[Rfam]
RNA sequence: UACUGCAUAUAUGACUGACGGAAGUGGAAUUAACCACAGGGAAUAUAGUUAUGGAUUUACAGCCGACCGUCUGGGCAAUUAGU
Numbered sequence: 001u002a003c004u005g006c007a008u009a010u011a012u013g014a015c016u017g018a019c020g021g022a023a024g025u026g027g028a029a030u031u032a033a034c035c036a037c038a039g040g041g042a043a044u045a046u047a048g049u050u051a052u053g054g055a056u057u058u059a060c061a062g063c064c065g066a067c068c069g070u071c072u073g074g075g076c077a078a079u080u081a082g083u
Stems, first nucleotide, its partner, number of pairs: 004051002008047005015040002017071005024037004062076003